[Rfam]
Nucleotides: 099
Stems, first nucleotide, its partner, number of pairs: 001099003021082004030072004039064002041057005
Number, partner (000 for none) and nucleotide at each position: 001099u002098g003097c004000a005000a006000u007000g008000a009000u010000g011000u012000c013000g014000u015000a016000a017000u018000u019000u020000g021082c022081g023080u024079c025000u026000u027000a028000c029000u030072c031071u032070g033069u034000u035000c036000u037000c038000a039064g040063c041057g042056a043055c044054a045053g046000u047000u048000g049000c050000c051000u052000g053045c054044u055043g056042u057041c058000a059000g060000u061000a062000a063040g064039c065000u066000g067000g068000u069033a070032c071031a072030g073000a074000a075000g076000g077000u078000u079024g080023a081022c082021g083000a084000a085000a086000a087000u088000u089000c090000u091000u092000a093000c094000u095000g096000a097003g098002c099001a